RNA sequence: UGAUGGCAGUGAUGAUUCCUAUAUUGUUUUCCUGAUGUUCAGACAUGAGGGUGCACAGUCACUCGCUCAUCUGAGCCAUCU
Numbered sequence: 001u002g003a004u005g006g007c008a009g010u011g012a013u014g015a016u017u018c019c020u021a022u023a024u025u026g027u028u029u030u031c032c033u034g035a036u037g038u039u040c041a042g043a044c045a046u047g048a049g050g051g052u053g054c055a056c057a058g059u060c061a062c063u064c065g066c067u068c069a070u071c072u073g074a075g076c077c078a079u080c081u
Base pairs, nucleotide, nucleotide: 002080003079004078005077006076007075
The record is an 81-nucleotide sequence, which matches "Small nucleolar RNA SNORD11B" in Rfam.
The base pairs follow the family's consensus structure, which was predicted with WAR.
Clan: SNORD11 clan.
On this family, see Yang et al., Nucleic Acids Res 2006: "snoSeeker: an advanced computational package for screening of guide and orphan snoRNA genes in the human genome".
Rfam 15.1 lists 733 matches to the family in 632 species.